[Rfam]
RNA sequence: UAUCAGGAUAUACGUGGUGUUCUGGUAAGUAUCUCGCUUAUGAGAUCACGCGUAUAUUCGCUGGU
Numbered sequence: 001u002a003u004c005a006g007g008a009u010a011u012a013c014g015u016g017g018u019g020u021u022c023u024g025g026u027a028a029g030u031a032u033c034u035c036g037c038u039u040a041u042g043a044g045a046u047c048a049c050g051c052g053u054a055u056a057u058u059c060g061c062u063g064g065u
Stems, first nucleotide, its partner, number of pairs: 006059011018048002021045003025041006
RNA: mir-5885 microRNA precursor family